[Rfam]
RNA sequence: UUCGCCCAUGAUUGUCCAAACGCAAUUCUUGUUCAAUUGUAAACUUCAAGAACUGUGUAUGGACAUCAGUGGCUGA
Numbered sequence: 001u002u003c004g005c006c007c008a009u010g011a012u013u014g015u016c017c018a019a020a021c022g023c024a025a026u027u028c029u030u031g032u033u034c035a036a037u038u039g040u041a042a043a044c045u046u047c048a049a050g051a052a053c054u055g056u057g058u059a060u061g062g063a064c065a066u067c068a069g070u071g072g073c074u075g076a
Base pairs, nucleotide, nucleotide: 002075004073005072006071009068010067011066012065014064015063016062017061018060021057022056023055024054026052027051028050029049030048031047
Shown here is a 76-nucleotide RNA from Patiria miniata, a member of the family "mir-219 microRNA precursor family". NCBI's taxonomy places the organism under Eukaryota, Deuterostomia, Echinodermata, Asterinidae, Patiria. Pairs were carried over by alignment from the consensus structure, which was predicted with RNAalifold. The match comes from Rfam's covariance-model search (75 bits). The literature on the family includes a 2003 paper in Science by Lim et al., "Vertebrate microRNA genes".